Rfam assigns this 111-nucleotide RNA from Syntrophomonas wolfei to the family "TPP riboswitch aptamer (THI element)". Pairs were carried over by alignment from the consensus structure, which is taken from published work.

RNA sequence: ACUAGACGCUGGGGGAGCUUUGCCCGGGCAAAGCUGAGAUAGGGGGGUAGCCUCUGACCCUUUGCACCUGAACUGGAUAAUGCCAGCGGAGGGAAGCGUUUUACCUGGAGU
Numbered sequence: 001a002c003u004a005g006a007c008g009c010u011g012g013g014g015g016a017g018c019u020u021u022g023c024c025c026g027g028g029c030a031a032a033g034c035u036g037a038g039a040u041a042g043g044g045g046g047g048u049a050g051c052c053u054c055u056g057a058c059c060c061u062u063u064g065c066a067c068c069u070g071a072a073c074u075g076g077a078u079a080a081u082g083c084c085a086g087c088g089g090a091g092g093g094a095a096g097c098g099u100u101u102u103a104c105c106u107g108g109a110g111u
Base pairs, nucleotide, nucleotide: 006099007098008097009096010095011061012060013059014058017034018033019032020031021030041055042054043053044052045051067092068091069090073086074085075084076083
A search with the family's covariance model found it, with a score of 76 bits.
The literature on the family includes a 2010 paper in RNA by Kulshina et al., "Thermodynamic analysis of ligand binding and ligand binding-induced tertiary structure formation by the thiamine pyrophosphate riboswitch".